Shown here is a 110-nucleotide sequence from Azorhizobium caulinodans, a member of the family "Guanidine-I riboswitch aptamer". Rfam's curators write: This family represents a conserved RNA structure found upstream of the ykkC and yxkD genes in Bacillus subtilis and related genes in other bacteria.
RNA sequence: AGAGUUGGUGGCUAGGGUUCCGGCGCCGGAAGGCGUGUCUGGUCCGAGAGCUGCCACCGGUCCGGGAGACAUCCGGAUCGGGCGCACGGCGGGAUAAAAGCCCGGGAGAC
Numbered sequence: 001a002g003a004g005u006u007g008g009u010g011g012c013u014a015g016g017g018u019u020c021c022g023g024c025g026c027c028g029g030a031a032g033g034c035g036u037g038u039c040u041g042g043u044c045c046g047a048g049a050g051c052u053g054c055c056a057c058c059g060g061u062c063c064g065g066g067a068g069a070c071a072u073c074c075g076g077a078u079c080g081g082g083c084g085c086a087c088g089g090c091g092g093g094a095u096a097a098a099a100g101c102c103c104g105g106g107a108g109a110c
Stems, first nucleotide, its partner, number of pairs: 007055006015045002020042002022039001023036005057081009085105001087108001091103003

Rfam 15.1 lists 1,509 matches to the family in 1,281 species.